About this RNA: Rfam assigns this 134-nucleotide RNA from Phyllostomus discolor to the family "Small nucleolar RNA SNORA13". The organism belongs to Phyllostomus, within Eukaryota. It is annotated as an H/ACA-box small nucleolar RNA.
[Rfam]
RNA sequence: UGCCUUUGUGUUGCCCGUUCACUUUUGGAAACUAGUGAAUGUGGUGUCAAGAAAGGCGUAAACUAAACACUUUGCAGCCCUUUCCUGCCCUUGAAUAUGGUGUCUUUGGUGUAGGCGCUGCAUAAGUAACAGUG
Numbered sequence: 001u002g003c004c005u006u007u008g009u010g011u012u013g014c015c016c017g018u019u020c021a022c023u024u025u026u027g028g029a030a031a032c033u034a035g036u037g038a039a040u041g042u043g044g045u046g047u048c049a050a051g052a053a054a055g056g057c058g059u060a061a062a063c064u065a066a067a068c069a070c071u072u073u074g075c076a077g078c079c080c081u082u083u084c085c086u087g088c089c090c091u092u093g094a095a096u097a098u099g100g101u102g103u104c105u106u107u108g109g110u111g112u113a114g115g116c117g118c119u120g121c122a123u124a125a126g127u128a129a130c131a132g133u134g
Stems, first nucleotide, its partner, number of pairs: 002057006009049002012046004016041008069127004073122006084115005089109002093104002